[Rfam]
RNA: antisense RNA of dnaA mRNA
Organism: Shewanella gelidii
RNA sequence: UUUCGCAUCCGGUUUGUUUUUUAUAAUGCCAUUACCGACAGCAUGCAGGAGAUGGGUUUUACCCAAACCGGUGCCACCAUA
Number, nucleotide and partner (000 for none) at each position: 001u000002u000003u000004c000005g042006c041007a000008u000009c000010c037011g036012g035013u034014u000015u000016g032017u031018u000019u000020u000021u028022u000023a000024u000025a000026a000027u000028g021029c000030c000031a017032u016033u000034a013035c012036c011037g010038a000039c000040a000041g006042c005043a000044u000045g000046c000047a000048g000049g000050a000051g078052a000053u076054g075055g000056g074057u073058u000059u000060u000061a072062c071063c070064c000065a000066a000067a000068c000069c000070g063071g062072u061073g057074c056075c054076a053077c000078c051079a000080u000081a000